[Rfam]
RNA: Small nucleolar RNA SNORA51
RNA sequence: GAAGUGAUGGCUUACCACAGUCUGUGUUCUUACACUGACUGUACAAUAAAGAGGAGGGAAAGUAAACCUACUCCAUUAUACCUCAGCCCAGGCCCUGGGUCUGGUCUGUAUUGUGAAUGGGAAGACAUGG
Numbered sequence: 001g002a003a004g005u006g007a008u009g010g011c012u013u014a015c016c017a018c019a020g021u022c023u024g025u026g027u028u029c030u031u032a033c034a035c036u037g038a039c040u041g042u043a044c045a046a047u048a049a050a051g052a053g054g055a056g057g058g059a060a061a062g063u064a065a066a067c068c069u070a071c072u073c074c075a076u077u078a079u080a081c082c083u084c085a086g087c088c089c090a091g092g093c094c095c096u097g098g099g100u101c102u103g104g105u106c107u108g109u110a111u112u113g114u115g116a117a118u119g120g121g122a123a124g125a126c127a128u129g130g
Base pairs, nucleotide, nucleotide: 005055008052018041019040020039024035025034026033027032072121073120074119075118076117084108085107086106088104089103090102091101092100093099